[Rfam]
A member of the RNA family "Bacterial RNase P class A" from marine actinobacterium PHSC20C1, 372 nucleotides long. Rfam classes the family as a ribozyme. Lineage of the source: Bacteria > Bacillati > Actinomycetota > Actinomycetes. It is one of the family's seed sequences. Its Rfam clan is "RNaseP clan".

RNA sequence: UGGGUCGGCAAGACGGUCGCGUUAUCCGCAAGGGUACCGAGGAACGUCCGGGCUCCGCAGAGCAGGAUGGUGGGUAACACCCACCCGGGGCAACCCGCGAGAACAGUGCAACAGAAAGUAGACCGCCACAGACUUCGGUCUGGGGUAAGGGUGAAACGGUGGUGUAAGAGACCACCAGCGGCCGGGGUGACUCGGUCGGCUAGGUAAACCUCGUCCGGAGCAAGAUCAGACAGAAGACGCUAAGGCUGCUCGCCAAGUCUUCGGGUAGAUCGCUAGAGGUGUGCGGCAACGUACAUCGUAGAUAGAUGACCGUCCAGCACGAAGGUUUCGGCCUCGUGUGAACAGAACCCGGCGUACUAGCCGGCCCAUUCC
Numbered sequence: 001u002g003g004g005u006c007g008g009c010a011a012g013a014c015g016g017u018c019g020c021g022u023u024a025u026c027c028g029c030a031a032g033g034g035u036a037c038c039g040a041g042g043a044a045c046g047u048c049c050g051g052g053c054u055c056c057g058c059a060g061a062g063c064a065g066g067a068u069g070g071u072g073g074g075u076a077a078c079a080c081c082c083a084c085c086c087g088g089g090g091c092a093a094c095c096c097g098c099g100a101g102a103a104c105a106g107u108g109c110a111a112c113a114g115a116a117a118g119u120a121g122a123c124c125g126c127c128a129c130a131g132a133c134u135u136c137g138g139u140c141u142g143g144g145g146u147a148a149g150g151g152u153g154a155a156a157c158g159g160u161g162g163u164g165u166a167a168g169a170g171a172c173c174a175c176c177a178g179c180g181g182c183c184g185g186g187g188u189g190a191c192u193c194g195g196u197c198g199g200c201u202a203g204g205u206a207a208a209c210c211u212c213g214u215c216c217g218g219a220g221c222a223a224g225a226u227c228a229g230a231c232a233g234a235a236g237a238c239g240c241u242a243a244g245g246c247u248g249c250u251c252g253c254c255a256a257g258u259c260u261u262c263g264g265g266u267a268g269a270u271c272g273c274u275a276g277a278g279g280u281g282u283g284c285g286g287c288a289a290c291g292u293a294c295a296u297c298g299u300a301g302a303u304a305g306a307u308g309a310c311c312g313u314c315c316a317g318c319a320c321g322a323a324g325g326u327u328u329c330g331g332c333c334u335c336g337u338g339u340g341a342a343c344a345g346a347a348c349c350c351g352g353c354g355u356a357c358u359a360g361c362c363g364g365c366c367c368a369u370u371c372c
Base pairs, nucleotide, nucleotide: 001368002367003366004365005364006363007362008361009360012314013313014312015311016310017309018308020039021038023036024035025034026033027032044355045354046353048352049351050350051349052348053220054219055218056217060251061250062249063248065216066215067214068213069212070084071083072082073081074080085099086097087096088095089094100211101210106209107208108205109204123150124149125146126145127144129142130141131140132139133138158176159175160174161173162172163171178200179198180197181196182195183194184193185192186191224271225270226269227268233262234261235260236259237258238257244254245253246252278297279296280295281294282293283292284291285290